[Rfam]
RNA: THF (Tetrahydrofolate) riboswitch aptamer
Organism: Lacrimispora saccharolytica
RNA sequence: CGCAGAGUAGGGGAGCAGGCGUUAAGUGCCGGAUGGACAGGGAGUUGCCGUCCGGACGAAGAAGGAAACCUUCGCGGUCUGUUCCCCGCAUCCCGCUGCA
Numbered sequence: 001c002g003c004a005g006a007g008u009a010g011g012g013g014a015g016c017a018g019g020c021g022u023u024a025a026g027u028g029c030c031g032g033a034u035g036g037a038c039a040g041g042g043a044g045u046u047g048c049c050g051u052c053c054g055g056a057c058g059a060a061g062a063a064g065g066a067a068a069c070c071u072u073c074g075c076g077g078u079c080u081g082u083u084c085c086c087c088g089c090a091u092c093c094c095g096c097u098g099c100a
Stems, first nucleotide, its partner, number of pairs: 002099004010087010020076003026057002029055008040093003044089001061073004